[Rfam]
RNA: Manganese Mn2+ riboswitch aptamer (yybP-ykoY)
RNA sequence: CCUUAGGGGAGUAGCCGCCUUCGAGUCUUUCGAAGAGCGCAUGUCAACAUACUUGGCGCUGUAUCCAAUUUACGCCAUGGCAUGCGCGACCGCACGGUUUGGCAAGACCUAUGGUGCUUCCCUUUACCCGGCCGGGCGAAGGCGUUGCGCCAUUCGUCAGUGCCCGGCCCUC
Numbered sequence: 001c002c003u004u005a006g007g008g009g010a011g012u013a014g015c016c017g018c019c020u021u022c023g024a025g026u027c028u029u030u031c032g033a034a035g036a037g038c039g040c041a042u043g044u045c046a047a048c049a050u051a052c053u054u055g056g057c058g059c060u061g062u063a064u065c066c067a068a069u070u071u072a073c074g075c076c077a078u079g080g081c082a083u084g085c086g087c088g089a090c091c092g093c094a095c096g097g098u099u100u101g102g103c104a105a106g107a108c109c110u111a112u113g114g115u116g117c118u119u120c121c122c123u124u125u126a127c128c129c130g131g132c133c134g135g136g137c138g139a140a141g142g143c144g145u146u147g148c149g150c151c152a153u154u155c156g157u158c159a160g161u162g163c164c165c166g167g168c169c170c171u172c
Base pairs, nucleotide, nucleotide: 019035020034021033037087038086039085040084041083042082043081044080045079046078054077055076056075057074058073094171